[Rfam]
Overview:
The record is an 84-nucleotide sequence from Kalanchoe fedtschenkoi, which matches "Small nucleolar RNA R21" in Rfam.
RNA sequence: CAUCCCUGUGAUGAUCCAUAUUGAAGAAUGUUAAAAGUAGUGUUUGAAAUUUCGGCUGAAAAAAUUCGCAAAUUCUGAGGGAUG
Numbered sequence: 001c002a003u004c005c006c007u008g009u010g011a012u013g014a015u016c017c018a019u020a021u022u023g024a025a026g027a028a029u030g031u032u033a034a035a036a037g038u039a040g041u042g043u044u045u046g047a048a049a050u051u052u053c054g055g056c057u058g059a060a061a062a063a064a065u066u067c068g069c070a071a072a073u074u075c076u077g078a079g080g081g082a083u084g
Base pairs, nucleotide, nucleotide: 001084002083003082004081005080006079
Dot-bracket structure: ((((((........................................................................))))))